[Rfam]
RNA sequence: GACGGACCACCGCCUAAUCGCCAUUCGUGGCGAACCGGGGACCCGUGUAGUUGGGGUGAAGCCGCGCAAUUCCGGCGGCCGGGCGCGCUUCCCGCUCGAACCCGUCAGCUAACCCGGUCGGCGGCCGAGGGAAGAAAG
Numbered sequence: 001g002a003c004g005g006a007c008c009a010c011c012g013c014c015u016a017a018u019c020g021c022c023a024u025u026c027g028u029g030g031c032g033a034a035c036c037g038g039g040g041a042c043c044c045g046u047g048u049a050g051u052u053g054g055g056g057u058g059a060a061g062c063c064g065c066g067c068a069a070u071u072c073c074g075g076c077g078g079c080c081g082g083g084c085g086c087g088c089u090u091c092c093c094g095c096u097c098g099a100a101c102c103c104g105u106c107a108g109c110u111a112a113c114c115c116g117g118u119c120g121g122c123g124g125c126c127g128a129g130g131g132a133a134g135a136a137a138g
Stems, first nucleotide, its partner, number of pairs: 011123004018033005034118006044053002054103003062078004081097004
Dot-bracket structure: ..........((((...(((((......)))))((((((....((......))(((.....((((.........))))..((((.........))))...))).........)))))).))))...............
RNA: c-di-AMP riboswitch aptamer (ydaO/yuaA leader)
Organism: Paractinoplanes tereljensis